[Rfam]
RNA sequence: GGCCCCGACGUAAAAAGCUUUAAAGGCCCUGGGAAGAAGAAAUUCCCCAAACCCAACCCCCUCUCCCCGGCCACGCGCAGGGGCCCGCAGAAGCCCACGGCAGCUCGCAGGGGCCCGUCACCCGCGCGGGUGAGGUUUGCCAACUGAGCUGGAUUUUCCGGUGGUUCGCAGGCAUAUGCUCACCGCGACAACCCAGACAUGCGUCGGCCCCCGGCCGGGAGUGCGAAUCCCAUUGCCGAGGGCCUGACCACCGAGGAAGUAAAGGGCUUCCCG
Dot-bracket structure: ......(..(.....((((..................................................................................))))............((((((....))))))..............(.(((...........................))).).....................(((((.((.(.((((.......))))...).)).)))))....)..)..(((((.......)))))..